[Rfam]
RNA sequence: CGCGACCGGUCGCCGACAUCCGGGGCAGGAGUGGGGGAACCACCUUCGUCGUCCGCGCGGACCACUCGGGGUGAAGCCACCAGCCGGUGGCCGGGCACCUUCCACGCCCGAACCCGACAGCUCACCUCACAGGCGUGGGAAGGAACCA
Dot-bracket structure: ..........((((....(((......)))((((((....(..........................)(((.....((((......))))..((((.........))))...))).........)))))).)))).............
Overview:
This 148-nucleotide RNA sequence from Nocardioides sp. JS614 belongs to the Rfam family "c-di-AMP riboswitch aptamer (ydaO/yuaA leader)". The pairing is the family consensus, mapped onto this sequence. It scores 69 bits against the family's covariance model.